Plastid-psbA-3 3UTR RNA: a 55-nucleotide sequence from Actinidia chinensis.
It is annotated as a cis-regulatory element.
The source organism's lineage runs through Eukaryota, eudicotyledons, Gunneridae, Actinidia and Actinidia chinensis.
The family's consensus secondary structure was predicted with LocARNA.
From the family's description: Plastid psbA-3 is a non-coding RNA (ncRNA) present in plastids.
Clan: Plastid-psbA 3UTR RNA clan.
RNA sequence: GGGAGCAAUAACCAAAUUCUUGGUCUGGCAAGAGGGAAUUAUUGCUCCUUUACUU
Numbered sequence: 001g002g003g004a005g006c007a008a009u010a011a012c013c014a015a016a017u018u019c020u021u022g023g024u025c026u027g028g029c030a031a032g033a034g035g036g037a038a039u040u041a042u043u044g045c046u047c048c049u050u051u052a053c054u055u
Stems, first nucleotide, its partner, number of pairs: 001049011017034006